[Rfam]
RNA: ylbH leader
Organism: Halobacillus sp. BBL2006
RNA sequence: AAAAAAAUAGGGCUGCCUUAAACAGACAGCCCUUCUUUUUUGAAUCAUUCAAUAUAAUUCAAAAAAGUAAAGGGAGAGGAGAAACCGGAGGAAGCGCUUAUGGGGAUGUAAGCCUUCUCCGUUU
Numbered sequence: 001a002a003a004a005a006a007a008u009a010g011g012g013c014u015g016c017c018u019u020a021a022a023c024a025g026a027c028a029g030c031c032c033u034u035c036u037u038u039u040u041u042g043a044a045u046c047a048u049u050c051a052a053u054a055u056a057a058u059u060c061a062a063a064a065a066a067g068u069a070a071a072g073g074g075a076g077a078g079g080a081g082a083a084a085c086c087g088g089a090g091g092a093a094g095c096g097c098u099u100a101u102g103g104g105g106a107u108g109u110a111a112g113c114c115u116u117c118u119c120c121g122u123u124u
Stems, first nucleotide, its partner, number of pairs: 010032006017025002033074005042060004086121004091117004096113005